[Rfam]
RNA: Cyanobacterial functional RNA 1
Organism: Cyanobium usitatum
RNA sequence: GUGCGAGCUUCGGCUCUCACACUCCUCACACCCUCCAGCCCGGCGCGUCCGGGCCUU
Numbered sequence: 001g002u003g004c005g006a007g008c009u010u011c012g013g014c015u016c017u018c019a020c021a022c023u024c025c026u027c028a029c030a031c032c033c034u035c036c037a038g039c040c041c042g043g044c045g046c047g048u049c050c051g052g053g054c055c056u057u
Stems, first nucleotide, its partner, number of pairs: 001020003005016004038054006